Background
Rfam assigns this 376-nucleotide sequence from Ruegeria sp. TM1040 to the family "Alphaproteobacteria transfer-messenger RNA".
RNA sequence: CCCUUUAACUCCCCUCCAAACCACCCUAUAUUUGGAGUGUUCCUUCGGGAACUAUGGACAUAAACGCGCUCGUAAUAAGCGGAUCGGACCCGGGGGCGGUACCCGGCGGCUCCACCAAAUCACUUCCGGCUUUCUCCUUCGUUUGGGGAGUUUAUUCGGAACCGGGGGGCCGAAAUAGGAUCGACGGACGUCUAAAGGGGUUAGCUUUGUCUCGGCUGUCUGCCACCGUUACCGGCGAAAACAGUACAAUUGCAAACGACAAUCGUGCUCCGGUUGCUCUGGCUGCGUAAGCAGUUCGAGUCGAACCGACUUUAAGUCCUAGCGCCUAGCCGCGUUAGGCGGGGUUCGCAGGUACCUGGCAACAGAAACCUGCACU
Numbered sequence: 001c002c003c004u005u006u007a008a009c010u011c012c013c014c015u016c017c018a019a020a021c022c023a024c025c026c027u028a029u030a031u032u033u034g035g036a037g038u039g040u041u042c043c044u045u046c047g048g049g050a051a052c053u054a055u056g057g058a059c060a061u062a063a064a065c066g067c068g069c070u071c072g073u074a075a076u077a078a079g080c081g082g083a084u085c086g087g088a089c090c091c092g093g094g095g096g097c098g099g100u101a102c103c104c105g106g107c108g109g110c111u112c113c114a115c116c117a118a119a120u121c122a123c124u125u126c127c128g129g130c131u132u133u134c135u136c137c138u139u140c141g142u143u144u145g146g147g148g149a150g151u152u153u154a155u156u157c158g159g160a161a162c163c164g165g166g167g168g169g170c171c172g173a174a175a176u177a178g179g180a181u182c183g184a185c186g187g188a189c190g191u192c193u194a195a196a197g198g199g200g201u202u203a204g205c206u207u208u209g210u211c212u213c214g215g216c217u218g219u220c221u222g223c224c225a226c227c228g229u230u231a232c233c234g235g236c237g238a239a240a241a242c243a244g245u246a247c248a249a250u251u252g253c254a255a256a257c258g259a260c261a262a263u264c265g266u267g268c269u270c271c272g273g274u275u276g277c278u279c280u281g282g283c284u285g286c287g288u289a290a291g292c293a294g295u296u297c298g299a300g301u302c303g304a305a306c307c308g309a310c311u312u313u314a315a316g317u318c319c320u321a322g323c324g325c326c327u328a329g330c331c332g333c334g335u336u337a338g339g340c341g342g343g344g345u346u347c348g349c350a351g352g353u354a355c356c357u358g359g360c361a362a363c364a365g366a367a368a369c370c371u372g373c374a375c376u
Stems, first nucleotide, its partner, number of pairs: 039052005056212005066205002068201004080190002084187003090106005107172007213228003219238002222236003342357004348373006
NCBI's taxonomy places the organism under Bacteria, Pseudomonadati, Pseudomonadota, Alphaproteobacteria, Ruegeria. The sequence is in the family's curated seed alignment. On this family, see Williams and Bartel, RNA 1996: "Phylogenetic analysis of tmRNA secondary structure". Rfam classes the family as a non-coding RNA gene. Rfam describes the family as follows. Bacterial tmRNA, also known as 10Sa RNA or SsrA, is named for its dual tRNA and mRNA-like properties.